[Rfam]
RNA sequence: UUUAGAACUCGAGAUAUGGGUUGAACACUGAACAGUGUUUGGGCUGCAGGACAGAUUUGGACUUCUCCAUUGCUACUAUAAUUUGGACUUGAAAACAACCUUUUUAAAUCUUGGACUCCACAUAAAAGUUUUAGGCCUAUGUCUUAGCUUUCCAUC
Numbered sequence: 001u002u003u004a005g006a007a008c009u010c011g012a013g014a015u016a017u018g019g020g021u022u023g024a025a026c027a028c029u030g031a032a033c034a035g036u037g038u039u040u041g042g043g044c045u046g047c048a049g050g051a052c053a054g055a056u057u058u059g060g061a062c063u064u065c066u067c068c069a070u071u072g073c074u075a076c077u078a079u080a081a082u083u084u085g086g087a088c089u090u091g092a093a094a095a096c097a098a099c100c101u102u103u104u105u106a107a108a109u110c111u112u113g114g115a116c117u118c119c120a121c122a123u124a125a126a127a128g129u130u131u132u133a134g135g136c137c138u139a140u141g142u143c144u145u146a147g148c149u150u151u152c153c154a155u156c
Stems, first nucleotide, its partner, number of pairs: 003154001005152003008147002011145010021134005027129003035123003041119003045115001048112004054105002059100002063097001072088001074086001
RNA: MIR2912 microRNA precursor family